[Rfam]
RNA sequence: CUAGUUUCUCAGGGCGGGGUGCAAGUCCCCACCGGCGGUAACAGGGGUAAUACUGGUGUAUUGAUUUCUGAGAGCCCGCGAGCGCUUGGUGGGUGCAAUGCCCAUCAAGGUCAGCAGAUCUGGUGUGAUUCCAGAGCCGACGGUCAUAGUCCGGAUGAAAGAGAAACGUG
Numbered sequence: 001c002u003a004g005u006u007u008c009u010c011a012g013g014g015c016g017g018g019g020u021g022c023a024a025g026u027c028c029c030c031a032c033c034g035g036c037g038g039u040a041a042c043a044g045g046g047g048u049a050a051u052a053c054u055g056g057u058g059u060a061u062u063g064a065u066u067u068c069u070g071a072g073a074g075c076c077c078g079c080g081a082g083c084g085c086u087u088g089g090u091g092g093g094u095g096c097a098a099u100g101c102c103c104a105u106c107a108a109g110g111u112c113a114g115c116a117g118a119u120c121u122g123g124u125g126u127g128a129u130u131c132c133a134g135a136g137c138c139g140a141c142g143g144u145c146a147u148a149g150u151c152c153g154g155a156u157g158a159a160a161g162a163g164a165a166a167c168g169u170g
Base pairs, nucleotide, nucleotide: 004167005166006165007164008163009162010161017029018028019027031150032149033139034138035079036078037077038076074137075136082115083114119135120134121133122132123131141153142152143151

The family of this 170-nucleotide sequence from Lampropedia puyangensis is "FMN riboswitch aptamer (RFN element)". Rfam links the family to the GO term FMN binding.